RNA sequence: GAAGCAAAUGAUGAAAAAAAGAAUAGGGACAUCUUAUAAUCCCUUCGGGGAUGUGAUGACAUAUUCGAUGGGAAUCUCUAUGAUGCUUC
Numbered sequence: 001g002a003a004g005c006a007a008a009u010g011a012u013g014a015a016a017a018a019a020a021g022a023a024u025a026g027g028g029a030c031a032u033c034u035u036a037u038a039a040u041c042c043c044u045u046c047g048g049g050g051a052u053g054u055g056a057u058g059a060c061a062u063a064u065u066c067g068a069u070g071g072g073a074a075u076c077u078c079u080a081u082g083a084u085g086c087u088u089c
Stems, first nucleotide, its partner, number of pairs: 002088005
RNA: Small nucleolar RNA R44/J54/Z268 family